[Rfam]
RNA sequence: GGUGGCUGGUGUGCAUGGUGUUAGUCUGUGUUAUGUAUUGUUGCCCGACUGUGUUUUGCAGCCUGGCAGCAGUGCUCACUCCACACCUGCAGCCAUAGAACAACUGGAGAUCAUAGUACUGGCCCUUGACGUCUUAAUUGACAUCACACCAUUGGCCAGCCUCCAAAUUCUCCAACAUGU
Numbered sequence: 001g002g003u004g005g006c007u008g009g010u011g012u013g014c015a016u017g018g019u020g021u022u023a024g025u026c027u028g029u030g031u032u033a034u035g036u037a038u039u040g041u042u043g044c045c046c047g048a049c050u051g052u053g054u055u056u057u058g059c060a061g062c063c064u065g066g067c068a069g070c071a072g073u074g075c076u077c078a079c080u081c082c083a084c085a086c087c088u089g090c091a092g093c094c095a096u097a098g099a100a101c102a103a104c105u106g107g108a109g110a111u112c113a114u115a116g117u118a119c120u121g122g123c124c125c126u127u128g129a130c131g132u133c134u135u136a137a138u139u140g141a142c143a144u145c146a147c148a149c150c151a152u153u154g155g156c157c158a159g160c161c162u163c164c165a166a167a168u169u170c171u172c173c174a175a176c177a178u179g180u
Stems, first nucleotide, its partner, number of pairs: 013090003030079002035076001036074006043067003047063001050060003106173005119159006126151001128145002131142003